[Rfam]
Shown here is a 121-nucleotide sequence from Neorhizobium lilium, a member of the family "Alphaproteobacterial ar14". A search with the family's covariance model found it, with a score of 101 bits. The source organism's lineage runs through Bacteria, Pseudomonadati, Alphaproteobacteria, Rhizobiaceae and Neorhizobium.
RNA sequence: GUAAUUCGAGCCGCGCAUUCCUCCUCCCGGUGCGGCUUCGAGGGGACUGGCGAUACUCCUCCUCCCAAUCGCUGGUCAUUAUGACAACGCCCACCGGAUCCUCCCCCGGUGGGCGUUGCUC
Numbered sequence: 001g002u003a004a005u006u007c008g009a010g011c012c013g014c015g016c017a018u019u020c021c022u023c024c025u026c027c028c029g030g031u032g033c034g035g036c037u038u039c040g041a042g043g044g045g046a047c048u049g050g051c052g053a054u055a056c057u058c059c060u061c062c063u064c065c066c067a068a069u070c071g072c073u074g075g076u077c078a079u080u081a082u083g084a085c086a087a088c089g090c091c092c093a094c095c096g097g098a099u100c101c102u103c104c105c106c107c108g109g110u111g112g113g114c115g116u117u118g119c120u121c
Base pairs, nucleotide, nucleotide: 007040008039009038010036011035012034013033014032015031016030045077046076047075048074049073050072051071052070053069054068087116088115089114090113091112092111093110094109095108096107097106